[Rfam]
RNA sequence: AGCCAGUGAUGACUUUAAAUGAUAAGAGUAGUGGACAGAAGAGAUUUCUGAAUACUUGAAACGCUGAGGCU
Numbered sequence: 001a002g003c004c005a006g007u008g009a010u011g012a013c014u015u016u017a018a019a020u021g022a023u024a025a026g027a028g029u030a031g032u033g034g035a036c037a038g039a040a041g042a043g044a045u046u047u048c049u050g051a052a053u054a055c056u057u058g059a060a061a062c063g064c065u066g067a068g069g070c071u
Stems, first nucleotide, its partner, number of pairs: 001071004
Small nucleolar RNA SNORD75: a 71-nucleotide RNA from Ornithorhynchus anatinus. The source organism's lineage runs through Eukaryota, Eumetazoa, Vertebrata, Monotremata and Ornithorhynchus. A reference for the family is Smith and Steitz (1998), "Classification of gas5 as a multi-small-nucleolar-RNA (snoRNA) host gene and a member of the 5'-terminal oligopyrimidine gene family reveals common features of snoRNA host genes", Mol Cell Biol.